[Rfam]
RNA sequence: ACCGCUGAGCCAUCUCUCCAGCCCAAAAAUUAAAAGAUUUAAAAACAAAUAUUGGGCUGGAGAGAUGGCUCAGCGGU
Numbered sequence: 001a002c003c004g005c006u007g008a009g010c011c012a013u014c015u016c017u018c019c020a021g022c023c024c025a026a027a028a029a030u031u032a033a034a035a036g037a038u039u040u041a042a043a044a045a046c047a048a049a050u051a052u053u054g055g056g057c058u059g060g061a062g063a064g065a066u067g068g069c070u071c072a073g074c075g076g077u
Stems, first nucleotide, its partner, number of pairs: 002076023
Overview:
The family of this 77-nucleotide sequence from Rattus norvegicus is "mir-3473 microRNA precursor family". A search with the family's covariance model found it, with a score of 80 bits. The family has 5 seed sequences and 1,094 matches in Rfam 15.1. Taxonomically the source falls in Rattus (Eukaryota, Opisthokonta, Bilateria, Muroidea).